Shown here is a 107-nucleotide RNA from Vulpes vulpes, a member of the family "mir-8834 microRNA precursor family".
Nucleotides: 107
Stems, first nucleotide, its partner, number of pairs: 002099003006095001009094001011091002014087003021080002027074001030073009042060003
Number, partner (000 for none) and nucleotide at each position: 001000a002099g003098g004097a005000a006095c007000a008000a009094c010000c011091c012090a013000a014087c015086c016085c017000c018000a019000g020000u021080g022079g023000c024000u025000a026000u027074g028000g029000c030073a031072g032071c033070u034069c035068u036067g037066g038065a039000a040000a041000c042060c043059u044058g045000g046000a047000u048000u049000c050000a051000g052000c053000c054000c055000c056000c057000g058044c059043a060042g061000u062000a063000a064000c065038u066037c067036c068035g069034g070033g071032g072031c073030u074027c075000u076000c077000c078000a079022u080021c081000u082000g083000c084000a085016g086015g087014g088000c089000c090012u091011g092000g093000a094009g095006g096000c097004u098003c099002c100000c101000g102000g103000g104000c105000g106000g107000g

A search with the family's covariance model found it, with a score of 65 bits.